Source information: Rfam assigns this 57-nucleotide sequence from Anisodus acutangulus to the family "Plastid-rps18 3UTR RNA". On this family, see Richter et al., Plant Commun 2023: "Retrograde signaling in plants: A critical review focusing on the GUN pathway and beyond". A search with the family's covariance model found it, with a score of 60 bits. Rfam's curators write: Plastid rps18 is a non-coding RNA (ncRNA) present in plastids. It was identified as a short stem-loop motif in the 3 prime untranslate region (3UTR) of rps18 gene.

[Rfam]
RNA sequence: UGCAAGUAUUUUACGGUUAAGAAGCAUCUGUCUCUUGUACAGAUCGUUUUUCCUUAA
Dot-bracket structure: .................(((((.((....)).)))))....................